[Rfam]
RNA sequence: UGGGUAGUAUCUAAUUGAACUACACCUCUUGUAGUGAUUGUAAUGAACCUUAAAAAAUGAAUUUUAAUGAAAUUCUGCCUUGAUCCAAAAAGGACUAGGACAGAGGG
Numbered sequence: 001u002g003g004g005u006a007g008u009a010u011c012u013a014a015u016u017g018a019a020c021u022a023c024a025c026c027u028c029u030u031g032u033a034g035u036g037a038u039u040g041u042a043a044u045g046a047a048c049c050u051u052a053a054a055a056a057a058u059g060a061a062u063u064u065u066a067a068u069g070a071a072a073u074u075c076u077g078c079c080u081u082g083a084u085c086c087a088a089a090a091a092g093g094a095c096u097a098g099g100a101c102a103g104a105g106g107g
Base pairs, nucleotide, nucleotide: 002026003025004023005022006021007020008019010018011017075103076102077101078099079098080097082095084094085093086092
A member of the RNA family "pan motif" from Metabacillus sediminilitoris, 107 nucleotides long. Rfam classes the family as a cis-regulatory element. The base pairs follow the family's consensus structure, which is taken from published work. NCBI's taxonomy places the organism under Bacteria, Bacillati, Bacillota, Bacilli, Metabacillus. The match comes from Rfam's covariance-model search (67 bits).